[Rfam]
RNA sequence: CUCUGUCACUGGAAGUGUCAGGGCCAAAGGAG
Numbered sequence: 001c002u003c004u005g006u007c008a009c010u011g012g013a014a015g016u017g018u019c020a021g022g023g024c025c026a027a028a029g030g031a032g
Base pairs, nucleotide, nucleotide: 001023002022003021004020005019008016009015010014